[Rfam]
RNA: c-di-GMP-II-GCG riboswitch aptamer
RNA sequence: UCACCGCCGGGAAGCGAUGAUCCUCGAGGGGAGCUGACGGUCGCUCGGACGAGGCCUCGGCCUCACCCGCCCAUCGAGGGGAGCCAGUGGCGAGCCCGACCCGGGAGUGC
Numbered sequence: 001u002c003a004c005c006g007c008c009g010g011g012a013a014g015c016g017a018u019g020a021u022c023c024u025c026g027a028g029g030g031g032a033g034c035u036g037a038c039g040g041u042c043g044c045u046c047g048g049a050c051g052a053g054g055c056c057u058c059g060g061c062c063u064c065a066c067c068c069g070c071c072c073a074u075c076g077a078g079g080g081g082a083g084c085c086a087g088u089g090g091c092g093a094g095c096c097c098g099a100c101c102c103g104g105g106a107g108u109g110c
Base pairs, nucleotide, nucleotide: 002109003108004107007104008103009102010101011100014084015083022079023078024077025076026075027074039097040096041093042092043091044090045089